Rfam assigns this 87-nucleotide RNA from Rossellomorea vietnamensis to the family "c-di-GMP-I riboswitch aptamer".
The source organism's lineage runs through Bacteria, Bacillati, Bacilli, Bacillaceae and Rossellomorea.
Pairs were carried over by alignment from the consensus structure, which is taken from published work.

RNA sequence: UUUCGAAAAAGGCAAACUAAUUGAAAGAUUAGGACGCAAAACUACGGGUCUUCUAUUUUAAAAAAUAAUGAUCGCCGGGUUACCGAA
Numbered sequence: 001u002u003u004c005g006a007a008a009a010a011g012g013c014a015a016a017c018u019a020a021u022u023g024a025a026a027g028a029u030u031a032g033g034a035c036g037c038a039a040a041a042c043u044a045c046g047g048g049u050c051u052u053c054u055a056u057u058u059u060a061a062a063a064a065a066u067a068a069u070g071a072u073c074g075c076c077g078g079g080u081u082a083c084c085g086a087a
Stems, first nucleotide, its partner, number of pairs: 012037002017032006040081004045077003048072003055066004